[Rfam]
RNA sequence: CGAGGCCGCGCGGGAGAGUCCCCGUCCACGACGCCGGUUGUCGUGCGUGGGGCGCCGAAGGAGCAAGUCCUCCCCGGAAUCUCUCAGGCAACCGUAACCGCGUGGGCGAG
Numbered sequence: 001c002g003a004g005g006c007c008g009c010g011c012g013g014g015a016g017a018g019u020c021c022c023c024g025u026c027c028a029c030g031a032c033g034c035c036g037g038u039u040g041u042c043g044u045g046c047g048u049g050g051g052g053c054g055c056c057g058a059a060g061g062a063g064c065a066a067g068u069c070c071u072c073c074c075c076g077g078a079a080u081c082u083c084u085c086a087g088g089c090a091a092c093c094g095u096a097a098c099c100g101c102g103u104g105g106g107c108g109a110g
Stems, first nucleotide, its partner, number of pairs: 006105008020052006054089003057085002061083003
The family of this 110-nucleotide sequence from Wenjunlia vitaminophila is "Glycine riboswitch aptamer". A search with the family's covariance model found it, with a score of 59 bits.